[Rfam]
RNA sequence: CCGUGGCCUGAUUCAAGUAAUCCAGGAUAGGUUGGUUUAUUACCAGAGAGCCUAUCCUCGACUACUUGGGUUAGGAGGCGG
Numbered sequence: 001c002c003g004u005g006g007c008c009u010g011a012u013u014c015a016a017g018u019a020a021u022c023c024a025g026g027a028u029a030g031g032u033u034g035g036u037u038u039a040u041u042a043c044c045a046g047a048g049a050g051c052c053u054a055u056c057c058u059c060g061a062c063u064a065c066u067u068g069g070g071u072u073a074g075g076a077g078g079c080g081g
Stems, first nucleotide, its partner, number of pairs: 002080003007075006014068006021061002024058010
This 81-nucleotide RNA sequence from Petromyzon marinus belongs to the Rfam family "mir-26 microRNA precursor family". The family's consensus secondary structure was predicted with RNAalifold. The literature on the family includes a 2001 paper in Science by Lagos-Quintana et al., "Identification of novel genes coding for small expressed RNAs". Lineage of the source: Eukaryota > Craniata > Hyperoartia > Petromyzontidae > Petromyzon. Its family is annotated with miRNA-mediated post-transcriptional gene silencing and RISC complex in the Gene Ontology.